The family of this 102-nucleotide sequence from Hoskinsella hominis is "Purine riboswitch aptamer".

[Rfam]
RNA sequence: UAUGGUAAAAUUGCGUUGUUUCGUAUAAGCUUGCUGUGAUGGUGCAAGCGUUUCUACCCUCAGACCGUACUUUUGAGGACUAUGGAUCAACGCUUUUUUUAU
Dot-bracket structure: .................(.((((((...((((((.........))))))........(((((((.......)))))))..)))))).)..............
Numbered sequence: 001u002a003u004g005g006u007a008a009a010a011u012u013g014c015g016u017u018g019u020u021u022c023g024u025a026u027a028a029g030c031u032u033g034c035u036g037u038g039a040u041g042g043u044g045c046a047a048g049c050g051u052u053u054c055u056a057c058c059c060u061c062a063g064a065c066c067g068u069a070c071u072u073u074u075g076a077g078g079a080c081u082a083u084g085g086a087u088c089a090a091c092g093c094u095u096u097u098u099u100u101a102u
Stems, first nucleotide, its partner, number of pairs: 018088001020086006029049006058078007
The organism belongs to Hoskinsella, within Bacteria.